[Rfam]
Overview:
The record is a 91-nucleotide sequence from Leucopsar rothschildi, which matches "Small nucleolar RNA SNORD103/SNORD85" in Rfam. Rfam links the family to the GO terms nucleolus and RNA processing. Rfam classes the family as a C/D-box small nucleolar RNA. The source organism's lineage runs through Eukaryota, Chordata, Teleostomi, Euteleostomi and Leucopsar. The base pairs follow the family's consensus structure. The match comes from Rfam's covariance-model search (52 bits).
RNA sequence: GCUGGCAAUGAUGACAAACUUGCCCUCACUGAGACCCAUCAGGGGUUGAUGUUGAGAAACUUCCUCUGUGCUCAGCUUGGGCUGAGCCUGC
Numbered sequence: 001g002c003u004g005g006c007a008a009u010g011a012u013g014a015c016a017a018a019c020u021u022g023c024c025c026u027c028a029c030u031g032a033g034a035c036c037c038a039u040c041a042g043g044g045g046u047u048g049a050u051g052u053u054g055a056g057a058a059a060c061u062u063c064c065u066c067u068g069u070g071c072u073c074a075g076c077u078u079g080g081g082c083u084g085a086g087c088c089u090g091c
Stems, first nucleotide, its partner, number of pairs: 001091002004088003